Rfam assigns this 194-nucleotide RNA from Lonsdalea quercina to the family "Yersinia sRNA 251".
RNA sequence: CGUAAGCCAGUAAGGUGCGCUGACACAGCUCUGAACGGACACAAUCAUGUUUGUUAAAAGAGAUCACACCCACCAUUUCAUCUUCCGUGAACCGUUCCAGCGCGUCGCGCAGACCCGACUUUACGCCUGAUGGCAAGUCGCAUUGGGUGACGUCGCCAUUGACAAUAACGGUAACAUUUUCCCCCAACCGCGUC
Numbered sequence: 001c002g003u004a005a006g007c008c009a010g011u012a013a014g015g016u017g018c019g020c021u022g023a024c025a026c027a028g029c030u031c032u033g034a035a036c037g038g039a040c041a042c043a044a045u046c047a048u049g050u051u052u053g054u055u056a057a058a059a060g061a062g063a064u065c066a067c068a069c070c071c072a073c074c075a076u077u078u079c080a081u082c083u084u085c086c087g088u089g090a091a092c093c094g095u096u097c098c099a100g101c102g103c104g105u106c107g108c109g110c111a112g113a114c115c116c117g118a119c120u121u122u123a124c125g126c127c128u129g130a131u132g133g134c135a136a137g138u139c140g141c142a143u144u145g146g147g148u149g150a151c152g153u154c155g156c157c158a159u160u161g162a163c164a165a166u167a168a169c170g171g172u173a174a175c176a177u178u179u180u181c182c183c184c185c186a187a188c189c190g191c192g193u194c
Stems, first nucleotide, its partner, number of pairs: 002054006015040002018037002061078004083112002086109003093102003113193002116190002120187002125134003137166002140163001144158003171183001174180001
Pairs were carried over by alignment from the consensus structure, which was predicted with RNAfold.